[Rfam]
RNA: ZMP/ZTP riboswitch aptamer (pfl RNA motif)
Organism: Sporomusa silvacetica
RNA sequence: AAACAAUUAUGCAACUGGCGGAAAUAGCGAUUACUAUAGGGGAGCAUAAUUGAAUAUUAUCGACCGCCUGGGUAAAUAUA
Dot-bracket structure: ...(((((((((..(([[[[[..((((......))))..))..)))))))))....(((((..]]]]]..))))).....